[Rfam]
RNA sequence: CGGAUAGCCCCGCGUUGUGGUCUGACCCGACCCCGACGACAACGCGGGGCGAUCCC
Numbered sequence: 001c002g003g004a005u006a007g008c009c010c011c012g013c014g015u016u017g018u019g020g021u022c023u024g025a026c027c028c029g030a031c032c033c034c035g036a037c038g039a040c041a042a043c044g045c046g047g048g049g050c051g052a053u054c055c056c
Base pairs, nucleotide, nucleotide: 002055003054004053005052007050008049009048010047011046012045013044014043015042016041017040018039020037021036022035
F6 TB sRNA: a 56-nucleotide RNA sequence from Mycobacterium shinjukuense. NCBI's taxonomy places the organism under Bacteria, Bacillati, Actinomycetota, Mycobacteriales, Mycobacterium. The family's RNA type in Rfam is small RNA. The match comes from Rfam's covariance-model search (61 bits). The base pairs follow the family's consensus structure, which is taken from published work.